Shown here is a 111-nucleotide RNA from Microbacterium sp. dk485, a member of the family "Glycine riboswitch aptamer".
The match comes from Rfam's covariance-model search (39 bits).
[Rfam]
Nucleotides: 111
Stems, first nucleotide, its partner, number of pairs: 002106002005103005016038007040092003043088002047086001049084001053079001
Number, partner (000 for none) and nucleotide at each position: 001000g002106c003105c004000a005103c006102u007101c008100u009099g010000g011000a012000a013000a014000g015000c016038g017037a018036u019035c020034g021033g022032g023000a024000u025000g026000c027000a028000c029000c030000g031000c032022c033021c034020c035019g036018g037017u038016c039000c040092g041091c042090c043088g044087a045000c046000g047086g048000u049084g050000a051000a052000a053079g054000c055000c056000g057000c058000c059000g060000c061000a062000u063000c064000c065000g066000c067000u068000g069000g070000a071000u072000g073000a074000g075000g076000c077000g078000a079053c080000g081000a082000a083000a084049c085000u086047c087044u088043c089000a090042g091041g092040c093000c094000u095000a096000c097000g098000a099009c100008a101007g102006a103005g104000g105003g106002g107000g108000a109000g110000u111000u